[Rfam]
RNA sequence: UGGCUUGCUUCUGUGUGGAAGACUUGUGAUUUUGUUGUUGUUAGUUAGAUGAAUUGACAACAAAUCGCAGUCUACCCUACAGCACAGGCUU
Numbered sequence: 001u002g003g004c005u006u007g008c009u010u011c012u013g014u015g016u017g018g019a020a021g022a023c024u025u026g027u028g029a030u031u032u033u034g035u036u037g038u039u040g041u042u043a044g045u046u047a048g049a050u051g052a053a054u055u056g057a058c059a060a061c062a063a064a065u066c067g068c069a070g071u072c073u074a075c076c077c078u079a080c081a082g083c084a085c086a087g088g089c090u091u
Base pairs, nucleotide, nucleotide: 002090003089004088005087006086009084011082012081013080014079015078017076018075020073021072022071023070024069026068027067028066029065030064031063032062034061035060036059037058038057039056
Description:
This 91-nucleotide sequence from Clupea harengus belongs to the Rfam family "mir-7 microRNA precursor family". From the family's description: This family represents the microRNA (miRNA) precursor mir-7. For this family Rfam cites "Identification of novel genes coding for small expressed RNAs" (Lagos-Quintana et al., Science, 2001). The source organism's lineage runs through Eukaryota, Actinopteri, Clupeiformes, Clupeoidei and Clupea. The base pairs follow the family's consensus structure, which was predicted with PFOLD.